[Rfam]
RNA sequence: GGCUCGCUAGCAGCAGUUCUUCAGUGGCAAGCUUUAUGGUCAUGCAAUAUGCUAAAGCUGCCAGUUGAAGAACUGUUGAAGUUGGC
Dot-bracket structure: .....((...((....((((((...(((.(((((((................))))))))))....))))))....))..))....

The record is an 86-nucleotide RNA from Leptobrachium leishanense, which matches "mir-22 microRNA precursor family" in Rfam. Taxonomically the source falls in Leptobrachium (Eukaryota, Metazoa, Sarcopterygii, Amphibia). Rfam links the family to the GO terms miRNA-mediated post-transcriptional gene silencing and RISC complex.